[Rfam]
Rfam assigns this 78-nucleotide RNA sequence from Indicator maculatus to the family "Small nucleolar RNA SNORD69". The match comes from Rfam's covariance-model search (54 bits). The source organism's lineage runs through Eukaryota, Teleostomi, Sauropsida, Neoaves and Indicator. Rfam's curators write: snoRNA HBII-210 belongs to the C/D family of snoRNAs. For this family Rfam cites "RNomics: an experimental approach that identifies 201 candidates for novel, small, non-messenger RNAs in mouse" (Huttenhofer et al., EMBO J, 2001).
RNA sequence: UACACAAAGCAUAUGAUGAAAAAGCAUUGAAACUGACUCUGUGUGAUGUCCAUUCAAUCCAACCCUGAGCUUUGUGCC
Numbered sequence: 001u002a003c004a005c006a007a008a009g010c011a012u013a014u015g016a017u018g019a020a021a022a023a024g025c026a027u028u029g030a031a032a033c034u035g036a037c038u039c040u041g042u043g044u045g046a047u048g049u050c051c052a053u054u055c056a057a058u059c060c061a062a063c064c065c066u067g068a069g070c071u072u073u074g075u076g077c078c
Base pairs, nucleotide, nucleotide: 003076004075005074006073007072008071009070010069